[Rfam]
RNA sequence: GUACAGCCCAGAGGUGUGGCCCCUGAGAACACAAGGUGGGUUUGCCUUUGCCUUGGCUUUGCUGCUGUCUUGAGUAGAAUCUGUGGUAAUUUAGGCUAAUGUGCCUUGUGUUCUCAGGUCACCCCUUUGGGAUACCC
Numbered sequence: 001g002u003a004c005a006g007c008c009c010a011g012a013g014g015u016g017u018g019g020c021c022c023c024u025g026a027g028a029a030c031a032c033a034a035g036g037u038g039g040g041u042u043u044g045c046c047u048u049u050g051c052c053u054u055g056g057c058u059u060u061g062c063u064g065c066u067g068u069c070u071u072g073a074g075u076a077g078a079a080u081c082u083g084u085g086g087u088a089a090u091u092u093a094g095g096c097u098a099a100u101g102u103g104c105c106u107u108g109u110g111u112u113c114u115c116a117g118g119u120c121a122c123c124c125c126u127u128u129g130g131g132a133u134a135c136c137c
Stems, first nucleotide, its partner, number of pairs: 007131002011127004016122004025115014
RNA: MIR398 microRNA precursor family